[Rfam]
RNA: Glutamine-II riboswitch aptamer
RNA sequence: AAACGUUGGUCCCCAGUAGGGGACGCAGUCCGAUCUCAAACAAGCAACGGGGUUUGAGG
Numbered sequence: 001a002a003a004c005g006u007u008g009g010u011c012c013c014c015a016g017u018a019g020g021g022g023a024c025g026c027a028g029u030c031c032g033a034u035c036u037c038a039a040a041c042a043a044g045c046a047a048c049g050g051g052g053u054u055u056g057a058g059g
Base pairs, nucleotide, nucleotide: 004049005048006047007046008045010023011022012021013020014019034059035058036057037056038055039054040053041052